Notes
This 146-nucleotide RNA sequence from Streptomyces mangrovisoli belongs to the Rfam family "Streptomyces-metH RNA". A search with the family's covariance model found it, with a score of 105 bits. The source organism's lineage runs through Bacteria, Actinomycetota, Kitasatosporales, Streptomycetaceae and Streptomyces.
RNA sequence: CUCGUCCGCCCCGUGGACGCUCCGACCAUCAGGUCCCGGUCCCGGCUACCCUGGCGGCGUGCGCCGUGCACGGGAAGUCCUCGAUGGACACAUUCCGGCUACGACGCAAAGCCGACAGCCGUCGCAUUCGAGGGAGCCCUUCCAUG
Numbered sequence: 001c002u003c004g005u006c007c008g009c010c011c012c013g014u015g016g017a018c019g020c021u022c023c024g025a026c027c028a029u030c031a032g033g034u035c036c037c038g039g040u041c042c043c044g045g046c047u048a049c050c051c052u053g054g055c056g057g058c059g060u061g062c063g064c065c066g067u068g069c070a071c072g073g074g075a076a077g078u079c080c081u082c083g084a085u086g087g088a089c090a091c092a093u094u095c096c097g098g099c100u101a102c103g104a105c106g107c108a109a110a111g112c113c114g115a116c117a118g119c120c121g122u123c124g125c126a127u128u129c130g131a132g133g134g135a136g137c138c139c140u141u142c143c144a145u146g
Base pairs, nucleotide, nucleotide: 060108061107062106063105065103066102067101068100111125112124114123115122116121